This 83-nucleotide RNA from Pipistrellus kuhlii belongs to the Rfam family "mir-574 microRNA precursor family". The source organism's lineage runs through Eukaryota, Eumetazoa, Sarcopterygii, Yangochiroptera and Pipistrellus. It scores 80 bits against the family's covariance model. The family's consensus secondary structure was predicted with RNAalifold. On this family, see Lui et al., Cancer Res 2007: "Patterns of known and novel small RNAs in human cervical cancer".
[Rfam]
RNA sequence: AGGCCCAUAGAGAGAGAGGUAGGGUCUUAUCCACAGCCUCCGUGGCAGCUAUUGAUCAGCCAUUGCCUCUCUCUUUCUCUCUG
Numbered sequence: 001a002g003g004c005c006c007a008u009a010g011a012g013a014g015a016g017a018g019g020u021a022g023g024g025u026c027u028u029a030u031c032c033a034c035a036g037c038c039u040c041c042g043u044g045g046c047a048g049c050u051a052u053u054g055a056u057c058a059g060c061c062a063u064u065g066c067c068u069c070u071c072u073c074u075u076u077c078u079c080u081c082u083g
Base pairs, nucleotide, nucleotide: 010075011074012073013072014071015070016069017068018067019066020065021064022063024061026059027058029056030055031054035050036049037048